[Rfam]
RNA sequence: GGGCUUUGAGGUGGAAAAAGCGUUCCCAUACGCCACACGCCUUCGGGUAGUGGGCAAAAGAGAUGCCGGGAGUGACGCUCCGGCCGAAGUCC
Numbered sequence: 001g002g003g004c005u006u007u008g009a010g011g012u013g014g015a016a017a018a019a020g021c022g023u024u025c026c027c028a029u030a031c032g033c034c035a036c037a038c039g040c041c042u043u044c045g046g047g048u049a050g051u052g053g054g055c056a057a058a059a060g061a062g063a064u065g066c067c068g069g070g071a072g073u074g075a076c077g078c079u080c081c082g083g084c085c086g087a088a089g090u091c092c
Base pairs, nucleotide, nucleotide: 001092002091003090004089005088006087007086008085011029012028013027014026020078021077022076023075024074031060033053034052035051065084066083067082068081069080
The family of this 92-nucleotide sequence is "skipping-rope RNA".
It is annotated as a small RNA.